[Rfam]
RNA sequence: CUUGGCGGUAGAUCGGCUAAAACCCGCGACGUCCUGUCGCAACGCCGAUCGACUGUACAUCCUGUACG
Numbered sequence: 001c002u003u004g005g006c007g008g009u010a011g012a013u014c015g016g017c018u019a020a021a022a023c024c025c026g027c028g029a030c031g032u033c034c035u036g037u038c039g040c041a042a043c044g045c046c047g048a049u050c051g052a053c054u055g056u057a058c059a060u061c062c063u064g065u066a067c068g
Base pairs, nucleotide, nucleotide: 011050012049013048014047015046016045017044026040027039028038029037030036054068055067056066057065058064

The record is a 68-nucleotide sequence from Tumebacillus algifaecis, which matches "Bacillaceae-1 RNA" in Rfam.